[Rfam]
RNA sequence: AGCCGAAUAUCGCUUAAUCCACUUAGGAGCGGGGGAACCAACUUUGUGCAUUGUCACUUGGGGUGAAUCCUUUUUAGGUAGGGCUACUCUCAAGGCCCGAAUCCGACAGCUAACCUCGUCAGCGUUUUGAGAGGGGGGAC
Numbered sequence: 001a002g003c004c005g006a007a008u009a010u011c012g013c014u015u016a017a018u019c020c021a022c023u024u025a026g027g028a029g030c031g032g033g034g035g036a037a038c039c040a041a042c043u044u045u046g047u048g049c050a051u052u053g054u055c056a057c058u059u060g061g062g063g064u065g066a067a068u069c070c071u072u073u074u075u076a077g078g079u080a081g082g083g084c085u086a087c088u089c090u091c092a093a094g095g096c097c098c099g100a101a102u103c104c105g106a107c108a109g110c111u112a113a114c115c116u117c118g119u120c121a122g123c124g125u126u127u128u129g130a131g132a133g134g135g136g137g138g139a140c
Stems, first nucleotide, its partner, number of pairs: 011124004018028003029119006039060002061104003069078003081098004
RNA: c-di-AMP riboswitch aptamer (ydaO/yuaA leader)